[Rfam]
The family of this 111-nucleotide RNA sequence from Dysosmobacter segnis is "THF (Tetrahydrofolate) riboswitch aptamer". The source organism's lineage runs through Bacteria, Bacillati, Bacillota, Oscillospiraceae and Dysosmobacter. The literature on the family includes a 2010 paper in Chem Biol by Ames et al., "A eubacterial riboswitch class that senses the coenzyme tetrahydrofolate". From the family's description: Tetrahydrofolate (THF) riboswitch was first reported for Ames et al. as an RNA motif in 5' untranslated (5'-UTR)regions of folate transport and biosynthesis genes in Firmicutes genomes. It scores 69 bits against the family's covariance model. The family's consensus secondary structure is taken from published work. The family has 101 seed sequences and 747 matches in Rfam 15.1.

RNA sequence: GGCAGAGUAGAAGCACGCGUGUCGGCCAACAGGCCACAGUGCCGGAGGAACGGGGAGUUGUCCGCCGGACGAAAGGAGAUUUCCGCAGUGUGUGCUUCGCAUCCCGCUGCC
Numbered sequence: 001g002g003c004a005g006a007g008u009a010g011a012a013g014c015a016c017g018c019g020u021g022u023c024g025g026c027c028a029a030c031a032g033g034c035c036a037c038a039g040u041g042c043c044g045g046a047g048g049a050a051c052g053g054g055g056a057g058u059u060g061u062c063c064g065c066c067g068g069a070c071g072a073a074a075g076g077a078g079a080u081u082u083c084c085g086c087a088g089u090g091u092g093u094g095c096u097u098c099g100c101a102u103c104c105c106g107c108u109g110c111c
Base pairs, nucleotide, nucleotide: 001111002110003109004108005107010098011097012096013095014094015093016092017091018090019089020087021086022085039070040069042068043067044066045065047063048062049061053104054103055102057100075083076082077081